A member of the RNA family "transfer-messenger RNA" from Campylobacter upsaliensis, 359 nucleotides long.

RNA sequence: GGGGACGACCUGGCUUCGACAGGAGUAGUUUGACUAGGAUGGCAUACCGCUUUGGGCAAAGCGUAAAAAGCCUAAAUAAAAUUAAACGCAAACAACGCGAAAUUUGCUCCUGCUUACGCUAAAGUUGCGUGAGUUCAGUUGAGCCUAGAGCUUGAGUGAUACUAUCUAGCUUAAGUUUUAGUCAUCUUUGGUAGUGUAGUUUUAAGACUUGACGCACCUUAAAGUGAAGUUUAGUCUAGUCAAAUUUGUAAGUUUUGGAAGAUGAGCGGAAUUUGAUGAAAGAGUCAUCUUUGCUAAGUAUGUAGAGGUCUUUUUUGGGCUAUUUUUGGACAGGGGUUCAAUUCCCCUCGUCUCCACCA
Numbered sequence: 001g002g003g004g005a006c007g008a009c010c011u012g013g014c015u016u017c018g019a020c021a022g023g024a025g026u027a028g029u030u031u032g033a034c035u036a037g038g039a040u041g042g043c044a045u046a047c048c049g050c051u052u053u054g055g056g057c058a059a060a061g062c063g064u065a066a067a068a069a070g071c072c073u074a075a076a077u078a079a080a081a082u083u084a085a086a087c088g089c090a091a092a093c094a095a096c097g098c099g100a101a102a103u104u105u106g107c108u109c110c111u112g113c114u115u116a117c118g119c120u121a122a123a124g125u126u127g128c129g130u131g132a133g134u135u136c137a138g139u140u141g142a143g144c145c146u147a148g149a150g151c152u153u154g155a156g157u158g159a160u161a162c163u164a165u166c167u168a169g170c171u172u173a174a175g176u177u178u179u180a181g182u183c184a185u186c187u188u189u190g191g192u193a194g195u196g197u198a199g200u201u202u203u204a205a206g207a208c209u210u211g212a213c214g215c216a217c218c219u220u221a222a223a224g225u226g227a228a229g230u231u232u233a234g235u236c237u238a239g240u241c242a243a244a245u246u247u248g249u250a251a252g253u254u255u256u257g258g259a260a261g262a263u264g265a266g267c268g269g270a271a272u273u274u275g276a277u278g279a280a281a282g283a284g285u286c287a288u289c290u291u292u293g294c295u296a297a298g299u300a301u302g303u304a305g306a307g308g309u310c311u312u313u314u315u316u317g318g319g320c321u322a323u324u325u326u327u328g329g330a331c332a333g334g335g336g337u338u339c340a341a342u343u344c345c346c347c348u349c350g351u352c353u354c355c356a357c358c359a
Stems, first nucleotide, its partner, number of pairs: 001355007020328010033316001036313001037311004043302005048063005053074005119143002123140005145181006153173004159197007199225008209238001211236003239277009253268001255266001258292004263287003332348005
Dot-bracket structure: (((((((............((((((((((...(..(((((..(((((((((([[[[[.)))))......]]]]]............................................((..(((((........))))).)).[[[[[[..[[[[..(((((((....]]]]..]]]]]].........))))))).((((((((..[.[[[....))))))))........]]].](((((((((.....(.(..[[[[.[[[).)))))))))).......]]].]]]].....))))).....)))).)..)..))))))))))...(((((.......))))))))))))....
Pairs were carried over by alignment from the consensus structure, which is taken from published work. Lineage of the source: Bacteria > Pseudomonadati > Epsilonproteobacteria > Campylobacter > Campylobacter upsaliensis. Clan: tRNA clan. By type it is a non-coding RNA gene. Rfam describes the family as follows. Bacterial tmRNA, also known as 10Sa RNA or SsrA, is named for its dual tRNA and mRNA-like properties. Its role is to liberate the mRNA from a stalled ribosome. To accomplish this part of the tmRNA is used as a reading frame that ends in a translation stop signal. The broken mRNA is replaced in the ribosome by the tmRNA and translation of the tmRNA leads to addition of a proteolysis tag to the incomplete protein enabling recognition by a protease. Recently a number of permuted tmRNA genes have been found encoded in two parts. tmRNAs have been identified in eubacteria and some chloroplasts but are absent from archaeal and eukaryote nuclear genomes.